A member of the RNA family "Small nucleolar RNA Z279/snoR105/snoR108" from Brassica carinata, 103 nucleotides long. On this family, see Marker et al., Curr Biol 2002: "Experimental RNomics: identification of 140 candidates for small non-messenger RNAs in the plant Arabidopsis thaliana". The base pairs follow the family's consensus structure, which was predicted with PFOLD. NCBI's taxonomy places the organism under Eukaryota, Spermatophyta, eudicotyledons, Pentapetalae, Brassica. The match comes from Rfam's covariance-model search (72 bits). About the family: This family includes the plant snoRNAs known as Z279, snoR105 and snoR108.

RNA sequence: GGGAAGUGAGGAUUGGGUUUAUUCUCGCAUAAAUGCGUGAAGAGCGUUCCGCUCAAACCUUUUACGACAAUUGGGCGCUCCAAUUUUCAUGUCAUCUGAUCCC
Numbered sequence: 001g002g003g004a005a006g007u008g009a010g011g012a013u014u015g016g017g018u019u020u021a022u023u024c025u026c027g028c029a030u031a032a033a034u035g036c037g038u039g040a041a042g043a044g045c046g047u048u049c050c051g052c053u054c055a056a057a058c059c060u061u062u063u064a065c066g067a068c069a070a071u072u073g074g075g076c077g078c079u080c081c082a083a084u085u086u087u088c089a090u091g092u093c094a095u096c097u098g099a100u101c102c103c
Stems, first nucleotide, its partner, number of pairs: 001103004014094003019089001024039001026037003042080007059073001062070001
Dot-bracket structure: ((((.........(((..(....(.(((......))).)..(((((((..........(..(.......)..))))))))........)..))).....))))
Rfam classes the family as a C/D-box small nucleolar RNA.